[Rfam]
TPP riboswitch aptamer (THI element): a 107-nucleotide sequence from Egibacter rhizosphaerae. The base pairs follow the family's consensus structure, which is taken from published work.
RNA sequence: CGUAACCACGCGGGGCGUCCCUGACGGGACUGAGACCGGUCGACGGCCGGAACCCGUGGAACCUGACCUCGUUGACACGAGCGGAGGGAACGUGGUGUCACGCUCGG
Number, nucleotide and partner (000 for none) at each position: 001c000002g000003u000004a000005a000006c095007c094008a093009c092010g091011c056012g055013g054014g053015g000016c050017g030018u029019c028020c027021c026022u000023g000024a000025c000026g021027g020028g019029a018030c017031u000032g000033a000034g000035a000036c000037c049038g048039g047040u046041c045042g000043a000044c000045g041046g040047c039048c038049g037050g016051a000052a000053c014054c013055c012056g011057u000058g000059g000060a000061a000062c087063c086064u085065g000066a000067c000068c081069u080070c079071g078072u000073u000074g000075a000076c000077a000078c071079g070080a069081g068082c000083g000084g000085a064086g063087g062088g000089a000090a000091c010092g009093u008094g007095g006096u000097g000098u000099c000100a000101c000102g000103c000104u000105c000106g000107g000

The match comes from Rfam's covariance-model search (72 bits).
Lineage of the source: Bacteria > Actinomycetota > Nitriliruptoria > Egibacterales > Egibacter.